[Rfam]
RNA sequence: UGCGGAGGAAGCUCAUCAGCGGGGCCCCGGCCCCUGAGAAGGUCUGAGACUGGGGCCUCCCGUGGCCCUAAUGGGGCCCUCACCAAGCGGGUAGGUGAGUUCCCAGAAAGCAGGGCUCCACGAGUGGGCAGACUGAGCAGGAGAGGCCCCCGAGUGGGCGGAUGCCUCCCUCGCCCGAGCUUGGAAAAGACUCACGGCCAGCGCAGAGUGAGUUCAAUGGCUGAGGUGAGGUUCCUCGAGGACCUCAUAACCCAAUUCAGACUACUCUCCCCUGCC
Numbered sequence: 001u002g003c004g005g006a007g008g009a010a011g012c013u014c015a016u017c018a019g020c021g022g023g024g025c026c027c028c029g030g031c032c033c034c035u036g037a038g039a040a041g042g043u044c045u046g047a048g049a050c051u052g053g054g055g056c057c058u059c060c061c062g063u064g065g066c067c068c069u070a071a072u073g074g075g076g077c078c079c080u081c082a083c084c085a086a087g088c089g090g091g092u093a094g095g096u097g098a099g100u101u102c103c104c105a106g107a108a109a110g111c112a113g114g115g116c117u118c119c120a121c122g123a124g125u126g127g128g129c130a131g132a133c134u135g136a137g138c139a140g141g142a143g144a145g146g147c148c149c150c151c152g153a154g155u156g157g158g159c160g161g162a163u164g165c166c167u168c169c170c171u172c173g174c175c176c177g178a179g180c181u182u183g184g185a186a187a188a189g190a191c192u193c194a195c196g197g198c199c200a201g202c203g204c205a206g207a208g209u210g211a212g213u214u215c216a217a218u219g220g221c222u223g224a225g226g227u228g229a230g231g232u233u234c235c236u237c238g239a240g241g242a243c244c245u246c247a248u249a250a251c252c253c254a255a256u257u258c259a260g261a262c263u264a265c266u267c268u269c270c271c272c273u274g275c276c
Base pairs, nucleotide, nucleotide: 002275003274004273007270008269009268012225013224014223015222017220021034022033023032024031044260045259046258047257048256054199055198056197057196064078065077066076067075068074079094080093083090084089095195096194097193098192099191100190101189115180116179117178226248227247228246229245230244231243232242233241234240
Background:
The family of this 276-nucleotide sequence from Cricetulus griseus is "Nuclear RNase P". The match comes from Rfam's covariance-model search (192 bits). Rfam's curators write: Ribonuclease P (RNase P) is a ubiquitous endoribonuclease, found in archaea, bacteria and eukarya as well as chloroplasts and mitochondria. Its best characterised activity is the generation of mature 5'-ends of tRNAs by cleaving the 5'-leader elements of precursor-tRNAs.